[Rfam]
RNA sequence: GCCGAGCUCAGUUGCGUGAGCUUGUAACCCAAGUGGGGGUAUUAAGGUGAUCGAACGUAUUGGCUAAGUUCUUGUCGGGUGGGGUUCAAAGUGCAACAGACUGACUCGCCUAGUCCAAGUUGAGAGUUGAAUCAUGUGGUUAUUGGCUAAGUUCUUGUCGGGUGGGGUUCAAAUGCAACAGACUGACUUGAGAGUUGAAUCAUGUGGUUUAGGCGUAGGCUUUGAAUCACGUGGUUCUUAGAGGGCACGUGCCAUGAUGGUUUCACAGAGCAGCCAGCGAAAACCUUCCGCCCCCAACGGUGUAAGGAUAACGAGAUGGGUGUACCUUGGGCCCAUUGUGCCCCAAGAAUUGACCCAAUCAGACAAUCAUCGUU
Numbered sequence: 001g002c003c004g005a006g007c008u009c010a011g012u013u014g015c016g017u018g019a020g021c022u023u024g025u026a027a028c029c030c031a032a033g034u035g036g037g038g039g040u041a042u043u044a045a046g047g048u049g050a051u052c053g054a055a056c057g058u059a060u061u062g063g064c065u066a067a068g069u070u071c072u073u074g075u076c077g078g079g080u081g082g083g084g085u086u087c088a089a090a091g092u093g094c095a096a097c098a099g100a101c102u103g104a105c106u107c108g109c110c111u112a113g114u115c116c117a118a119g120u121u122g123a124g125a126g127u128u129g130a131a132u133c134a135u136g137u138g139g140u141u142a143u144u145g146g147c148u149a150a151g152u153u154c155u156u157g158u159c160g161g162g163u164g165g166g167g168u169u170c171a172a173a174u175g176c177a178a179c180a181g182a183c184u185g186a187c188u189u190g191a192g193a194g195u196u197g198a199a200u201c202a203u204g205u206g207g208u209u210u211a212g213g214c215g216u217a218g219g220c221u222u223u224g225a226a227u228c229a230c231g232u233g234g235u236u237c238u239u240a241g242a243g244g245g246c247a248c249g250u251g252c253c254a255u256g257a258u259g260g261u262u263u264c265a266c267a268g269a270g271c272a273g274c275c276a277g278c279g280a281a282a283a284c285c286u287u288c289c290g291c292c293c294c295c296a297a298c299g300g301u302g303u304a305a306g307g308a309u310a311a312c313g314a315g316a317u318g319g320g321u322g323u324a325c326c327u328u329g330g331g332c333c334c335a336u337u338g339u340g341c342c343c344c345a346a347g348a349a350u351u352g353a354c355c356c357a358a359u360c361a362g363a364c365a366a367u368c369a370u371c372g373u374u
Base pairs, nucleotide, nucleotide: 001040002039003038004023005022006021007020008019009018010017028037029036030035044373046371047370048369049368050367051366053364057360059359060358061357062355063354065352066351067350069349070348071347072346073345074344077343078342079341080340082334083333084332085331086330087329088328089327091326093325095323101319102318103317105315106314107313108312110307111306114304116302117301119298120297121296122295124293126291127290129237130236131235132234133233134232135231136230137229138228139227140226141225238243244289245288250279251278252277258267259266
RNA: Plant signal recognition particle RNA
Organism: Protea cynaroides